About this RNA: The family of this 83-nucleotide RNA from Otolemur garnettii is "mir-1343 microRNA precursor family".
[Rfam]
RNA sequence: CUGGCGUCGGUGCUGGGGAGUGGUUCCUGGGGUGGCCCUCCACUCCGACCCAUCCUGGGGUCUGCAGUCUUGCUUCGGGCUCG
Numbered sequence: 001c002u003g004g005c006g007u008c009g010g011u012g013c014u015g016g017g018g019a020g021u022g023g024u025u026c027c028u029g030g031g032g033u034g035g036c037c038c039u040c041c042a043c044u045c046c047g048a049c050c051c052a053u054c055c056u057g058g059g060g061u062c063u064g065c066a067g068u069c070u071u072g073c074u075u076c077g078g079g080c081u082c083g
Stems, first nucleotide, its partner, number of pairs: 003081003007078004012073002015070003020065004025060007034051002038047001

The family's consensus secondary structure was predicted with RNAalifold.